[Rfam]
RNA: c-di-GMP-I riboswitch aptamer
Organism: Paenalicyclobacillus macrosporangiidus
RNA sequence: UGAUGACAAAGGCAAACCAGUCCGAAAGGCUGGGACGCAAAGCCACGGGCCUACAGCGGUAUCCCGGGAACCGCCAUGGCAGCCGGGUUGUCGGA
Numbered sequence: 001u002g003a004u005g006a007c008a009a010a011g012g013c014a015a016a017c018c019a020g021u022c023c024g025a026a027a028g029g030c031u032g033g034g035a036c037g038c039a040a041a042g043c044c045a046c047g048g049g050c051c052u053a054c055a056g057c058g059g060u061a062u063c064c065c066g067g068g069a070a071c072c073g074c075c076a077u078g079g080c081a082g083c084c085g086g087g088u089u090g091u092c093g094g095a
Base pairs, nucleotide, nucleotide: 012038013037017033018032019031020030022029023028041089042088043087044086046085047084048083049080050079051078056074057073058072059071
Dot-bracket structure: ...........((...((((.((....))))))...))..((((.((((((....((((...........))))...)))..)))))))......